[Rfam]
mir-181 microRNA precursor family: an 82-nucleotide RNA from Xenopus laevis. The base pairs follow the family's consensus structure, which was predicted with PFOLD. The source organism's lineage runs through Eukaryota, Gnathostomata, Euteleostomi, Pipoidea and Xenopus. The literature on the family includes a 2001 paper in Cell by Ambros, "microRNAs: tiny regulators with great potential".

Nucleotides: 082
Base pairs, nucleotide, nucleotide: 001082002081003080005077006076007075008074014069015068016067017066018065019064020063021062022061026059027058028057029056030055031054033052034051035050
Number, partner (000 for none) and nucleotide at each position: 001082a002081g003080g004000u005077c006076a007075c008074a009000a010000u011000c012000a013000a014069c015068a016067u017066u018065c019064a020063u021062u022061g023000c024000u025000g026059u027058c028057g029056g030055u031054g032000g033052g034051u035050u036000g037000a038000g039000u040000u041000a042000a043000g044000a045000a046000c047000a048000c049000a050035a051034g052033c053000u054031c055030g056029c057028u058027g059026a060000a061022c062021g063020a064019u065018g066017a067016a068015u069014g070000c071000a072000a073000c074008u075007g076006u077005g078000u079000c080003c081002c082001u